[Rfam]
RNA: TPP riboswitch aptamer (THI element)
Organism: Psychrobacillus soli
RNA sequence: UUUUCGCACUAGGGGUGCCCAUUAUGGCUGAGAUGCGAGCAUUUGCUCCGAUCCCUUAUAACUCGAUCAGGAUAAUACCUGCGUGAGGAAGUGCGGUGACUUUCCG
Numbered sequence: 001u002u003u004u005c006g007c008a009c010u011a012g013g014g015g016u017g018c019c020c021a022u023u024a025u026g027g028c029u030g031a032g033a034u035g036c037g038a039g040c041a042u043u044u045g046c047u048c049c050g051a052u053c054c055c056u057u058a059u060a061a062c063u064c065g066a067u068c069a070g071g072a073u074a075a076u077a078c079c080u081g082c083g084u085g086a087g088g089a090a091g092u093g094c095g096g097u098g099a100c101u102u103u104c105c106g
Stems, first nucleotide, its partner, number of pairs: 006094005011056004016050001017028003035049001037048004062087004068081004